[Rfam]
RNA: BsrC
RNA sequence: UGGCGCCGAAACAACGAAAGCCCUACCUCUCUUUCAUCCUUACGGUUCCUCUGACCGAGCCAGUAUGAUUCAGCGCAAAGUUCAAUCU
Numbered sequence: 001u002g003g004c005g006c007c008g009a010a011a012c013a014a015c016g017a018a019a020g021c022c023c024u025a026c027c028u029c030u031c032u033u034u035c036a037u038c039c040u041u042a043c044g045g046u047u048c049c050u051c052u053g054a055c056c057g058a059g060c061c062a063g064u065a066u067g068a069u070u071c072a073g074c075g076c077a078a079a080g081u082u083c084a085a086u087c088u
Stems, first nucleotide, its partner, number of pairs: 034068003039063002041059001043057005